[Rfam]
RNA: Lysine riboswitch aptamer
RNA sequence: AAGUGAGGUAGAGGCGCGGUAUUUAACAGUCCUAAGUGGAGUUUGAGAAGCUAUGAUGCUCAGGAGAAGGAACUAUCGCCGAAGCUUUUAAUAUUUCUCUGUAUUAUUUGCUGGGUCUGCAGUUAAGAACUGCAGGACUAUCUUGAAAAGCCCUCCCAGGCGUUCAAGGUGUGCUAUCUCAAAG
Numbered sequence: 001a002a003g004u005g006a007g008g009u010a011g012a013g014g015c016g017c018g019g020u021a022u023u024u025a026a027c028a029g030u031c032c033u034a035a036g037u038g039g040a041g042u043u044u045g046a047g048a049a050g051c052u053a054u055g056a057u058g059c060u061c062a063g064g065a066g067a068a069g070g071a072a073c074u075a076u077c078g079c080c081g082a083a084g085c086u087u088u089u090a091a092u093a094u095u096u097c098u099c100u101g102u103a104u105u106a107u108u109u110g111c112u113g114g115g116u117c118u119g120c121a122g123u124u125a126a127g128a129a130c131u132g133c134a135g136g137a138c139u140a141u142c143u144u145g146a147a148a149a150g151c152c153c154u155c156c157c158a159g160g161c162g163u164u165c166a167a168g169g170u171g172u173g174c175u176a177u178c179u180c181a182a183a184g
Stems, first nucleotide, its partner, number of pairs: 006179006016079006023072002031064003035060004083112003089106006113139002116136008141169007